Shown here is a 74-nucleotide RNA sequence from Sphaerisporangium rufum, a member of the family "tRNA". The family's RNA type in Rfam is transfer RNA. Lineage of the source: Bacteria > Actinomycetota > Actinomycetes > Streptosporangiaceae > Sphaerisporangium. The match comes from Rfam's covariance-model search (60 bits).
RNA sequence: GGGGUCGUAGCCCAAUGGCAGGAGGCACAGGUUUUAGGUACCUGACAGUGUGGGUUCGAAUCCCACCGACCCCA
Numbered sequence: 001g002g003g004g005u006c007g008u009a010g011c012c013c014a015a016u017g018g019c020a021g022g023a024g025g026c027a028c029a030g031g032u033u034u035u036a037g038g039u040a041c042c043u044g045a046c047a048g049u050g051u052g053g054g055u056u057c058g059a060a061u062c063c064c065a066c067c068g069a070c071c072c073c074a
Base pairs, nucleotide, nucleotide: 001073002072003071004070005069006068007067010026011025012024028044029043030042031041032040050066051065052064053063054062